[Rfam]
RNA: Small nucleolar RNA SNORA23
RNA sequence: GCGAUAAUGUGUGCAUGGUUUUCGUCUGUGUCUGAUGGCAGUCUGUCUGUGUUUUGCAUUCAGUUCUUGCUAUCCACACAAACAUCAUGUAGCCGAAGAGUAAGCGGGGAUCAUAGUACUGGUCUAGUGUGGUCUCUUUGGACCUGUCCACCGCUGGCCAGCCUCCAAAUUCCCACACACAA
Numbered sequence: 001g002c003g004a005u006a007a008u009g010u011g012u013g014c015a016u017g018g019u020u021u022u023c024g025u026c027u028g029u030g031u032c033u034g035a036u037g038g039c040a041g042u043c044u045g046u047c048u049g050u051g052u053u054u055u056g057c058a059u060u061c062a063g064u065u066c067u068u069g070c071u072a073u074c075c076a077c078a079c080a081a082a083c084a085u086c087a088u089g090u091a092g093c094c095g096a097a098g099a100g101u102a103a104g105c106g107g108g109g110a111u112c113a114u115a116g117u118a119c120u121g122g123u124c125u126a127g128u129g130u131g132g133u134c135u136c137u138u139u140g141g142a143c144c145u146g147u148c149c150a151c152c153g154c155u156g157g158c159c160a161g162c163c164u165c166c167a168a169a170u171u172c173c174c175a176c177a178c179a180c181a182a
Base pairs, nucleotide, nucleotide: 013090014089015088016087029080030079031078033076034075036072037071038070039069040068041067043063044062045061048058049057050056107174108173109172110171119161120160121159122158123157124156126155127154128153129152131144132143133142134141